[Rfam]
Nucleotides: 121
Stems, first nucleotide, its partner, number of pairs: 001016002019100001021098003028039002040086003048063004066080004
Number, partner (000 for none) and nucleotide at each position: 001016a002015c003000a004000g005000g006000u007000a008000g009000u010000a011000c012000g013000c014000c015002g016001u017000g018000u019100c020000c021098g022097g023096g024000c025000a026000a027000c028039c029038g030000g031000a032000c033000c034000g035000g036000c037000u038029c039028g040086g041085g042084g043000u044000g045000a046000a047000g048063c049062c050061g051060c052000g053000u054000g055000a056000a057000a058000g059000c060051g061050c062049g063048g064000c065000c066080g067079g068078g069077c070000a071000u072000c073000u074000c075000c076000a077069g078068c079067c080066c081000g082000a083000a084042c085041c086040c087000g088000a089000c090000a091000g092000c093000u094000c095000a096023c097022c098021u099000c100019g101000c102000a103000g104000g105000c106000g107000c108000c109000g110000g111000a112000g113000a114000g115000g116000a117000a118000a119000a120000c121000g

Shown here is a 121-nucleotide RNA from Streptomyces uncialis, a member of the family "c-di-AMP riboswitch aptamer (ydaO/yuaA leader)". Taxonomically the source falls in Streptomyces (Bacteria, Bacillati, Actinomycetota, Actinomycetes).